[Rfam]
RNA sequence: GGCUGAUGAAACCUUUCCACCAGCUCCUCGUGGUAUCGGCUGGUAACAAGGACUUUAAUGGUCCUUGGCCAAUGGUGGGGG
Numbered sequence: 001g002g003c004u005g006a007u008g009a010a011a012c013c014u015u016u017c018c019a020c021c022a023g024c025u026c027c028u029c030g031u032g033g034u035a036u037c038g039g040c041u042g043g044u045a046a047c048a049a050g051g052a053c054u055u056u057a058a059u060g061g062u063c064c065u066u067g068g069c070c071a072a073u074g075g076u077g078g079g080g081g
Base pairs, nucleotide, nucleotide: 014081015080016079017078018077019076020075021074022034024032047067048066049065050064051063052062053061054060